[Rfam]
RNA sequence: CUCCCCGAAAUGCAUUUAGGUGCAGCGUUGAUUAAUAGUUUUAUAGAGGUAGAGCUACUGAUUGGAUGCGGGGGCUUCACCGCCUACCAAUUCCUGACAAACUCCGAAUGCUAUAAAAUGAUGAUCAGCAGUGAGGGCAUGGGUGCUAAGGUCCAUGUCCGAGAGGGAAAGAACCCGGACCAUCAGCUAAGGUCCCGAAAUAUGUACUAAGUUGACAAAACGCGGUGGGACUGCAUAGACAGCCAGGAUGUUGGCUUGGAAGCAGCCAUUCAUUUAAAGAGUGCGUAACAGCUCACUGGUCGAGCGGUCCCGCAUGGAUAAUGAUCGGGCAUAAGUACAUUACCGAAGCUAUGGACUCCAAUGGAGUGGUAGGGGAGCAUUGUAGUGCCGCUGAAGGUGUACCGCGAGGUAUGCUGGAGGAGCUACAAACGAAAAU
Numbered sequence: 001c002u003c004c005c006c007g008a009a010a011u012g013c014a015u016u017u018a019g020g021u022g023c024a025g026c027g028u029u030g031a032u033u034a035a036u037a038g039u040u041u042u043a044u045a046g047a048g049g050u051a052g053a054g055c056u057a058c059u060g061a062u063u064g065g066a067u068g069c070g071g072g073g074g075c076u077u078c079a080c081c082g083c084c085u086a087c088c089a090a091u092u093c094c095u096g097a098c099a100a101a102c103u104c105c106g107a108a109u110g111c112u113a114u115a116a117a118a119u120g121a122u123g124a125u126c127a128g129c130a131g132u133g134a135g136g137g138c139a140u141g142g143g144u145g146c147u148a149a150g151g152u153c154c155a156u157g158u159c160c161g162a163g164a165g166g167g168a169a170a171g172a173a174c175c176c177g178g179a180c181c182a183u184c185a186g187c188u189a190a191g192g193u194c195c196c197g198a199a200a201u202a203u204g205u206a207c208u209a210a211g212u213u214g215a216c217a218a219a220a221c222g223c224g225g226u227g228g229g230a231c232u233g234c235a236u237a238g239a240c241a242g243c244c245a246g247g248a249u250g251u252u253g254g255c256u257u258g259g260a261a262g263c264a265g266c267c268a269u270u271c272a273u274u275u276a277a278a279g280a281g282u283g284c285g286u287a288a289c290a291g292c293u294c295a296c297u298g299g300u301c302g303a304g305c306g307g308u309c310c311c312g313c314a315u316g317g318a319u320a321a322u323g324a325u326c327g328g329g330c331a332u333a334a335g336u337a338c339a340u341u342a343c344c345g346a347a348g349c350u351a352u353g354g355a356c357u358c359c360a361a362u363g364g365a366g367u368g369g370u371a372g373g374g375g376a377g378c379a380u381u382g383u384a385g386u387g388c389c390g391c392u393g394a395a396g397g398u399g400u401a402c403c404g405c406g407a408g409g410u411a412u413g414c415u416g417g418a419g420g421a422g423c424u425a426c427a428a429a430c431g432a433a434a435a436u
Stems, first nucleotide, its partner, number of pairs: 001377006011024005026131001027129007037122001038119009052105001053103002059099002064094003070088002072085004135160010165176003180354004185350003191344003200341001202340006221316002225313010242300005248273003253267003274278001279294001283292002355367005378431001380428007388420002396415008
RNA: Bacterial large subunit ribosomal RNA, nucleotides 836 to 1271